[Rfam]
RNA: ASdes TB sRNA
RNA sequence: AGAGCGGCGGGAUCGACACCGCGGGUCACCACGAGGUAGUCGCGCAUCACGAUGCCGUGACGGUUCUC
Numbered sequence: 001a002g003a004g005c006g007g008c009g010g011g012a013u014c015g016a017c018a019c020c021g022c023g024g025g026u027c028a029c030c031a032c033g034a035g036g037u038a039g040u041c042g043c044g045c046a047u048c049a050c051g052a053u054g055c056c057g058u059g060a061c062g063g064u065u066c067u068c
Stems, first nucleotide, its partner, number of pairs: 005062002008059002011030001013028001015027003035056004040052003044048001